A member of the RNA family "Small nucleolar RNA SNORD59" from Varanus komodoensis, 72 nucleotides long.
The family's consensus secondary structure was predicted with ILM.
The organism belongs to Varanus, within Eukaryota.
A search with the family's covariance model found it, with a score of 72 bits.
[Rfam]
RNA sequence: CCUUCGCUGAUGAGUAAACUCGUGACUUUCGUUCUUCUGAGAUCACUGAAGCAGCUAUUAUUUCUGAGAAGG
Numbered sequence: 001c002c003u004u005c006g007c008u009g010a011u012g013a014g015u016a017a018a019c020u021c022g023u024g025a026c027u028u029u030c031g032u033u034c035u036u037c038u039g040a041g042a043u044c045a046c047u048g049a050a051g052c053a054g055c056u057a058u059u060a061u062u063u064c065u066g067a068g069a070a071g072g
Base pairs, nucleotide, nucleotide: 001072002071003070005068